MIR7486 microRNA precursor family: an 87-nucleotide RNA from Gossypium mustelinum.
[Rfam]
RNA sequence: CACGUCAGCCUGCUUUGCUGAUGUGGACACAAACCGCGCUUACGUGGACGCGAUUUGCUGCCACGUCAGCAAACCGGGCUGACGUGG
Numbered sequence: 001c002a003c004g005u006c007a008g009c010c011u012g013c014u015u016u017g018c019u020g021a022u023g024u025g026g027a028c029a030c031a032a033a034c035c036g037c038g039c040u041u042a043c044g045u046g047g048a049c050g051c052g053a054u055u056u057g058c059u060g061c062c063a064c065g066u067c068a069g070c071a072a073a074c075c076g077g078g079c080u081g082a083c084g085u086g087g
Base pairs, nucleotide, nucleotide: 001086002085003084004083005082006081007080008079009078010077011076012075014073015072016071017070018069019068020067021066023064024063025062026061030057031056032055033054035052036051037050038049040047041046

Lineage of the source: Eukaryota > Streptophyta > eudicotyledons > Malvaceae > Gossypium. The base pairs follow the family's consensus structure, which was predicted with RNAalifold.